A member of the RNA family "Group II catalytic intron D1-D4-6" from Sorangium cellulosum, 222 nucleotides long. Rfam's curators write: Group II introns are found in rRNA, tRNA and mRNA of organelles in fungi, plants and protists, and also in mRNA in bacteria. It scores 104 bits against the family's covariance model. A reference for the family is Bonen and Vogel (2001), "The ins and outs of group II introns", Trends Genet.
RNA sequence: CAAGUCCUACCCCGGGAGGAGUCCACCCCCGGGAAAGCCAGUCCUUGCGCUGACGUGGGCGACCACGGCGGCGAAGCGUAGGAGGAAGCGCGAGCGGGCCGGGAGAACGAGCCUCGAAAAUGUACACCACGAAGGAGCCGACGCCCUCCCACCAGGCGGAAGGCCAUGCGGGGACGACCAAUGUGGACCGGGGCGGCGCCGUCCUUCCGGGGUCGGAGACCU
Dot-bracket structure: .........(((.(...((.[....)).).)))....(....((((((((((.(((((....))))).)))))...)).))).).......................((.((((((..............(((((((((..((((.........))))...)))....(((.(.((.((........]..)).)).).)))))))))))))))).)......